[Rfam]
RNA: ALIL pseudoknot
Organism: Ruegeria intermedia
RNA sequence: CGCGCAUUUUGCCCGGGCGGAGUUCGACCGCCCACUGAAACGAUGAUCGGGUUCAUUGACGAUCACCGGGUCGAAUAUGGGGUCGAGCCGGUCUGCCGGGUUCUCCCGAUCGCCCCG
Numbered sequence: 001c002g003c004g005c006a007u008u009u010u011g012c013c014c015g016g017g018c019g020g021a022g023u024u025c026g027a028c029c030g031c032c033c034a035c036u037g038a039a040a041c042g043a044u045g046a047u048c049g050g051g052u053u054c055a056u057u058g059a060c061g062a063u064c065a066c067c068g069g070g071u072c073g074a075a076u077a078u079g080g081g082g083u084c085g086a087g088c089c090g091g092u093c094u095g096c097c098g099g100g101u102u103c104u105c106c107c108g109a110u111c112g113c114c115c116c117g
Base pairs, nucleotide, nucleotide: 016032017031018030019029020028078117079116080115081114082113089112090111092109093108095106098103